[Rfam]
RNA sequence: CCCAGCGUGAGUACUGGCUGUUCGUUGGUUGACGUAGGCGAAUAGCUGUCAUCAACCACGCGAGAAUAACACGAGUCAUUUAAAUUACCGGGUUAAGACUUGUUUGAAUGGGUCACUCGGAGGAGGUGCCUCGACAAUA
Numbered sequence: 001c002c003c004a005g006c007g008u009g010a011g012u013a014c015u016g017g018c019u020g021u022u023c024g025u026u027g028g029u030u031g032a033c034g035u036a037g038g039c040g041a042a043u044a045g046c047u048g049u050c051a052u053c054a055a056c057c058a059c060g061c062g063a064g065a066a067u068a069a070c071a072c073g074a075g076u077c078a079u080u081u082a083a084a085u086u087a088c089c090g091g092g093u094u095a096a097g098a099c100u101u102g103u104u105u106g107a108a109u110g111g112g113u114c115a116c117u118c119g120g121a122g123g124a125g126g127u128g129c130c131u132c133g134a135c136a137a138u139a
Stems, first nucleotide, its partner, number of pairs: 005061005011056002013049002016047005022041003026037001073132003077128004085122002088120003092116002095113001099112003
RNA: Caenorhabditis snoRNA ceN51